MIR8757 microRNA precursor family: a 71-nucleotide sequence from Gossypium raimondii.
The family's consensus secondary structure was predicted with RNAalifold.
Taxonomically the source falls in Gossypium (Eukaryota, Mesangiospermae, Pentapetalae, rosids).
RNA sequence: UAUUUUGGGUUGGGUCGAGCUUAGGCAAGCAUAAUGUAUGUUAAUAUCUUGCUUAGGCCCGACCCGACUAG
Numbered sequence: 001u002a003u004u005u006u007g008g009g010u011u012g013g014g015u016c017g018a019g020c021u022u023a024g025g026c027a028a029g030c031a032u033a034a035u036g037u038a039u040g041u042u043a044a045u046a047u048c049u050u051g052c053u054u055a056g057g058c059c060c061g062a063c064c065c066g067a068c069u070a071g
Base pairs, nucleotide, nucleotide: 005067006066007065008064009063010062011061012060013059014058015057016056017054018053019052020051023049024048025047028042029041030040031039032038033037